This 173-nucleotide sequence from Paenibacillus sp. KS1 belongs to the Rfam family "glmS glucosamine-6-phosphate activated ribozyme aptamer". By type it is a riboswitch. Lineage of the source: Bacteria > Bacillati > Bacilli > Caryophanales > Paenibacillus.

RNA sequence: ACCGUUCAAGAAGCGCCAGCGCUUGCUGCUGAAUCGGCCAUUGCAGCGAGUGGACGAGGUGGAGGUGUUCGAAAUGUUCGGCGGGGACCUCCCGGUGUGUUACCGGCACCGUAAGAGCAUUAGCGGAAUGCAGGAGAGGCGACUUUCCUGACAACGCAUGCUUACGCAGGUAU
Numbered sequence: 001a002c003c004g005u006u007c008a009a010g011a012a013g014c015g016c017c018a019g020c021g022c023u024u025g026c027u028g029c030u031g032a033a034u035c036g037g038c039c040a041u042u043g044c045a046g047c048g049a050g051u052g053g054a055c056g057a058g059g060u061g062g063a064g065g066u067g068u069u070c071g072a073a074a075u076g077u078u079c080g081g082c083g084g085g086g087a088c089c090u091c092c093c094g095g096u097g098u099g100u101u102a103c104c105g106g107c108a109c110c111g112u113a114a115g116a117g118c119a120u121u122a123g124c125g126g127a128a129u130g131c132a133g134g135a136g137a138g139g140c141g142a143c144u145u146u147c148c149u150g151a152c153a154a155c156g157c158a159u160g161c162u163u164a165c166g167c168a169g170g171u172a173u
Stems, first nucleotide, its partner, number of pairs: 020052008029043001061092005069081004093111006115163006132149007
It scores 72 bits against the family's covariance model.